Overview:
This 111-nucleotide RNA sequence from Paraburkholderia graminis belongs to the Rfam family "Burkholderia sRNA Bp1_Cand684_SIPHT". A reference for the family is Khoo et al. (2012), "Computational discovery and RT-PCR validation of novel Burkholderia conserved and Burkholderia pseudomallei unique sRNAs", BMC Genomics. It scores 61 bits against the family's covariance model. The base pairs follow the family's consensus structure, which was predicted with RNAalifold.

[Rfam]
RNA sequence: AGAAAAGUAGGUGCCGCCCCGCACAGGGGCAGCGCCAAUAGACCACUAAGAAAACAGGUUCUACAAAAAACGCGGAGAUCACAGAAAAAACCAGCGCCCCGCGCAACACCA
Numbered sequence: 001a002g003a004a005a006a007g008u009a010g011g012u013g014c015c016g017c018c019c020c021g022c023a024c025a026g027g028g029g030c031a032g033c034g035c036c037a038a039u040a041g042a043c044c045a046c047u048a049a050g051a052a053a054a055c056a057g058g059u060u061c062u063a064c065a066a067a068a069a070a071c072g073c074g075g076a077g078a079u080c081a082c083a084g085a086a087a088a089a090a091c092c093a094g095c096g097c098c099c100c101g102c103g104c105a106a107c108a109c110c111a
Base pairs, nucleotide, nucleotide: 012074013073014072016030017029018028019027020026059066060065095103096102097101